[Rfam]
RNA: Vibrio RNA AS9
Organism: Idiomarina sp. A28L
RNA sequence: CCGGCAGCGAUCUUCAGUGAGUGUUAAACAAAUCAACCCUCGGCCAUAACGAGCCAUAAAGUUAAUGGCUUCCGGGGUUACACAUUCCGCCGCCAGUAUUA
Numbered sequence: 001c002c003g004g005c006a007g008c009g010a011u012c013u014u015c016a017g018u019g020a021g022u023g024u025u026a027a028a029c030a031a032a033u034c035a036a037c038c039c040u041c042g043g044c045c046a047u048a049a050c051g052a053g054c055c056a057u058a059a060a061g062u063u064a065a066u067g068g069c070u071u072c073c074g075g076g077g078u079u080a081c082a083c084a085u086u087c088c089g090c091c092g093c094c095a096g097u098a099u100u101a
Stems, first nucleotide, its partner, number of pairs: 003055003006025004011020002032047002037043002063101005068093002072089001074087001075085001077083001